[Rfam]
RNA sequence: GAGACACUCUUAUGGGGCAGGACUUGCUGCAGCGGGGCUUUGGUGCUCACUGAGUCUGCCUCUUGAGUUUGUCACU
Numbered sequence: 001g002a003g004a005c006a007c008u009c010u011u012a013u014g015g016g017g018c019a020g021g022a023c024u025u026g027c028u029g030c031a032g033c034g035g036g037g038c039u040u041u042g043g044u045g046c047u048c049a050c051u052g053a054g055u056c057u058g059c060c061u062c063u064u065g066a067g068u069u070u071g072u073c074a075c076u
Stems, first nucleotide, its partner, number of pairs: 001075001003073004009067004014062006021056003030052003034048003037044002
The family of this 76-nucleotide RNA sequence from Pipistrellus kuhlii is "mir-9229 microRNA precursor family". The match comes from Rfam's covariance-model search (78 bits). Lineage of the source: Eukaryota > Deuterostomia > Vertebrata > Dipnotetrapodomorpha > Pipistrellus.